[Rfam]
RNA sequence: AAAAGGAGCAAUAUCCAAUUUCUUGUUCUAUCAAGAGGAUUGGAUAUUGCUCAGUUA
Numbered sequence: 001a002a003a004a005g006g007a008g009c010a011a012u013a014u015c016c017a018a019u020u021u022c023u024u025g026u027u028c029u030a031u032c033a034a035g036a037g038g039a040u041u042g043g044a045u046a047u048u049g050c051u052c053a054g055u056u057a
Base pairs, nucleotide, nucleotide: 002056003055006052007051008050009049010048011047012046013045017040020037021036022035023034024033025032
Dot-bracket structure: .((..((((((((...(..((((((......))))))..)....))))))))..)).
Overview: A member of the RNA family "Plastid-psbA-4 3UTR RNA" from Hevea brasiliensis, 57 nucleotides long. It is annotated as a cis-regulatory element. The base pairs follow the family's consensus structure, which was predicted with LocARNA. Lineage of the source: Eukaryota > Streptophyta > Streptophytina > Embryophyta > Hevea. Plastid psbA-4 is a non-coding RNA (ncRNA) present in plastids. It was identified in inverted repeat sequences in the 3 prime untranslate region (3UTR) of photosystem II quinone-binding protein (psbA).